The family of this 198-nucleotide sequence from Xenorhabdus koppenhoeferi is "GcvB RNA". Rfam links the family to the GO terms regulation of gene expression and mRNA binding. Lineage of the source: Bacteria > Pseudomonadati > Pseudomonadota > Morganellaceae > Xenorhabdus. About the family: The gcvB gene encodes a small untranslated RNA involved in expression of the dipeptide and oligopeptide transport systems in Escherichia coli. Included several unknown homologues in alignment (Bateman A pers obs). It base-pairs with SorC. This interaction triggers the degradation of GcvB by RNase E, alleviating the GcvB-mediated mRNA repression of other amino acid-related transport and metabolic genes.
RNA sequence: ACUUCCUAAGCCGGAACGAAAAGCCUCUUUGUAGCAAUACAUUGAUACUUUUGGCUUUGUGGUUGUGAUGUUGUGUUUGCAAGUUGUCUGGGAUUACCAGACCUUGUAGCUUAGGCUACUAUUUUUUCACUUCCUGUACAUUUACCCUGUCUGUCCAUAGUGAUUUUUUAAUGCACCGCAAUUGCGGUGCUUUUUUUC
Numbered sequence: 001a002c003u004u005c006c007u008a009a010g011c012c013g014g015a016a017c018g019a020a021a022a023g024c025c026u027c028u029u030u031g032u033a034g035c036a037a038u039a040c041a042u043u044g045a046u047a048c049u050u051u052u053g054g055c056u057u058u059g060u061g062g063u064u065g066u067g068a069u070g071u072u073g074u075g076u077u078u079g080c081a082a083g084u085u086g087u088c089u090g091g092g093a094u095u096a097c098c099a100g101a102c103c104u105u106g107u108a109g110c111u112u113a114g115g116c117u118a119c120u121a122u123u124u125u126u127u128c129a130c131u132u133c134c135u136g137u138a139c140a141u142u143u144a145c146c147c148u149g150u151c152u153g154u155c156c157a158u159a160g161u162g163a164u165u166u167u168u169u170a171a172u173g174c175a176c177c178g179c180a181a182u183u184g185c186g187g188u189g190c191u192u193u194u195u196u197u198c
Base pairs, nucleotide, nucleotide: 009056010055011054012053015052016051021050022049023048026045027044030041031040032039033038086102087101088100089099090098091097106119107118108117109116110115140168173190174189175188176187177186178185179184